[Rfam]
RNA sequence: GAGAAUAUAGUUUAACGGUUAAAACUAUUGCCUUUUAAGCAAUCAUUGUCAGUUCGAUUCUGUCUAUUCUUA
Number, nucleotide and partner (000 for none) at each position: 001g071002a070003g069004a068005a067006u066007a065008u000009a000010g025011u024012u023013u022014a000015a000016c000017g000018g000019u000020u000021a000022a013023a012024a011025c010026u000027a043028u042029u041030g040031c039032c000033u000034u000035u000036u000037a000038a000039g031040c030041a029042a028043u027044c000045a000046u000047u000048g064049u000050c062051a061052g060053u000054u000055c000056g000057a000058u000059u000060c052061u051062g050063u000064c048065u007066a006067u005068u004069c003070u002071u001072a000